The record is a 137-nucleotide sequence from Neogale vison, which matches "U8 small nucleolar RNA" in Rfam. The family's RNA type in Rfam is C/D-box small nucleolar RNA. It scores 55 bits against the family's covariance model. The organism belongs to Neogale, within Eukaryota.
RNA sequence: ACAUAAGUAAGAUGAUCUUUACCUAUUCUUUUUUUGUGGGGGAGAGCUUUGGACUAGAUGAUUGGAGUUGCCAAUAAUACAUGAUUAACGUCUCCUUGUAAUCAAGACUCGCACUGCCCUGAUUGCUCCUGUCUUCU
Numbered sequence: 001a002c003a004u005a006a007g008u009a010a011g012a013u014g015a016u017c018u019u020u021a022c023c024u025a026u027u028c029u030u031u032u033u034u035u036g037u038g039g040g041g042g043a044g045a046g047c048u049u050u051g052g053a054c055u056a057g058a059u060g061a062u063u064g065g066a067g068u069u070g071c072c073a074a075u076a077a078u079a080c081a082u083g084a085u086u087a088a089c090g091u092c093u094c095c096u097u098g099u100a101a102u103c104a105a106g107a108c109u110c111g112c113a114c115u116g117c118c119c120u121g122a123u124u125g126c127u128c129c130u131g132u133c134u135u136c137u
Base pairs, nucleotide, nucleotide: 023046024045027043028042029041030040031039032038077093079091080090082087098126099125100124101123102122103121104120106118